Nucleotides: 082
Stems, first nucleotide, its partner, number of pairs: 012020001042076004046067002049064006
Number, partner (000 for none) and nucleotide at each position: 001000g002000g003000u004000u005000u006000c007000u008000a009000u010000u011000g012020g013000u014000g015000u016000a017000a018000a019000u020012u021000c022000g023000a024000u025000u026000u027000a028000a029000g030000a031000u032000g033000a034000u035000a036000a037000a038000a039000a040000u041000u042076u043075c044074c045073c046067a047066u048000u049064g050063g051062u052061a053060g054059c055000g056000a057000a058000c059054g060053u061052u062051a063050u064049c065000c066047a067046u068000u069000a070000a071000g072000c073045g074044g075043g076042a077000a078000a079000u080000c081000u082000u
Background:
This 82-nucleotide sequence from Bougainvillea spectabilis belongs to the Rfam family "Plastid-rps12 3UTR RNA". Plastid rpl20 is a non-coding RNA (ncRNA) recognised in plastids. It was found in the three prime untranslated region (3UTR) of rps12 gene, its 3UTR location sugest a role in transcript maduration. For this family Rfam cites "Retrograde signaling in plants: A critical review focusing on the GUN pathway and beyond" (Richter et al., Plant Commun, 2023). Rfam 15.1 lists 1,710 matches to the family in 1,426 species. The organism belongs to Bougainvillea, within Eukaryota.